[Rfam]
RNA sequence: UUUUGGCAUAAUCUCAGCUGGCAACUGUGAGUAGUGUUUUCAUCCCUCUCACAGGCGCUGCUGGGGUUCUGUCACAC
Numbered sequence: 001u002u003u004u005g006g007c008a009u010a011a012u013c014u015c016a017g018c019u020g021g022c023a024a025c026u027g028u029g030a031g032u033a034g035u036g037u038u039u040u041c042a043u044c045c046c047u048c049u050c051a052c053a054g055g056c057g058c059u060g061c062u063g064g065g066g067u068u069c070u071g072u073c074a075c076a077c
Stems, first nucleotide, its partner, number of pairs: 004074004010068008020059003026053006
Dot-bracket structure: ...((((..((((((((..(((...((((((................))))))...))).))))))))..))))...